RNA: SAM riboswitch aptamer (S box leader)
RNA sequence: UUCUUAUCAAGAGAGGUUAAGGGACAUGGCCCGUCGAAACCUCAGCAACCAGCCUCUAAGUGGGUACGGUGCUAAGUCCAGCAAGCAUAUGCUUGCAAGAUGAGAA
Number, nucleotide and partner (000 for none) at each position: 001u106002u105003c104004u103005u102006a101007u100008c099009a000010a000011g000012a000013g043014a042015g041016g040017u039018u000019a000020a000021g032022g031023g030024a000025c000026a000027u080028g079029g078030c023031c022032c021033g000034u000035c000036g000037a000038a000039a017040c016041c015042u014043c013044a073045g072046c071047a070048a000049c069050c068051a065052g000053c063054c062055u000056c000057u000058a000059a000060g000061u000062g054063g053064g000065u051066a000067c000068g050069g049070u047071g046072c045073u044074a000075a000076g000077u098078c029079c028080a027081g000082c095083a094084a093085g092086c091087a000088u000089a000090u000091g086092c085093u084094u083095g082096c000097a000098a077099g008100a007101u006102g005103a004104g003105a002106a001